[Rfam]
RNA sequence: UUUAUUGACUUAUAAGCAGUAUAGUAAUAAAAUACAGCUGUGCUUUUGCACUAUGGCAAUAAAUGCAUCUUAGAAUAAAUGUAUUGGACCCGAGGGCAGUGCUCGGCAUCUCCACUGUUGUUAUGGGGAUGAAACAGGCUCGACAUGCAUAGUAAAGGGGAUAGCUUUUGCUCGGUGAGAAAACAGCCGUUUCAAGUGAUCAAAACUUAUAAGUGCAAACGAUAAUUUCGUUUCUGCUAAUGAUAAUAAUAGCACUGCUAACUUAGUAGCUGCUUAGUUUUAAAAUUAGCACGGUUUUUUGGGGUUUUCCGGGUAACAGAAAAACCCCUCA
Numbered sequence: 001u002u003u004a005u006u007g008a009c010u011u012a013u014a015a016g017c018a019g020u021a022u023a024g025u026a027a028u029a030a031a032a033u034a035c036a037g038c039u040g041u042g043c044u045u046u047u048g049c050a051c052u053a054u055g056g057c058a059a060u061a062a063a064u065g066c067a068u069c070u071u072a073g074a075a076u077a078a079a080u081g082u083a084u085u086g087g088a089c090c091c092g093a094g095g096g097c098a099g100u101g102c103u104c105g106g107c108a109u110c111u112c113c114a115c116u117g118u119u120g121u122u123a124u125g126g127g128g129a130u131g132a133a134a135c136a137g138g139c140u141c142g143a144c145a146u147g148c149a150u151a152g153u154a155a156a157g158g159g160g161a162u163a164g165c166u167u168u169u170g171c172u173c174g175g176u177g178a179g180a181a182a183a184c185a186g187c188c189g190u191u192u193c194a195a196g197u198g199a200u201c202a203a204a205a206c207u208u209a210u211a212a213g214u215g216c217a218a219a220c221g222a223u224a225a226u227u228u229c230g231u232u233u234c235u236g237c238u239a240a241u242g243a244u245a246a247u248a249a250u251a252g253c254a255c256u257g258c259u260a261a262c263u264u265a266g267u268a269g270c271u272g273c274u275u276a277g278u279u280u281u282a283a284a285a286u287u288a289g290c291a292c293g294g295u296u297u298u299u300u301g302g303g304g305u306u307u308u309c310c311g312g313g314u315a316a317c318a319g320a321a322a323a324a325c326c327c328c329u330c331a
Base pairs, nucleotide, nucleotide: 040051041050042049043048055172056171057170058169059168065165066164068161069160070159071158080149081148082147085145086144090106091105092104093103094102107131108130109129110128111127112126113125173189174188175187176186179201180200184198292311293310294309301328302327303326304325305324306323

This 331-nucleotide RNA from Ehrlichia ruminantium belongs to the Rfam family "Alphaproteobacteria transfer-messenger RNA".
The base pairs follow the family's consensus structure, which is taken from published work.
Rfam links the family to the GO term RNA catabolic process.
Rfam classes the family as a non-coding RNA gene.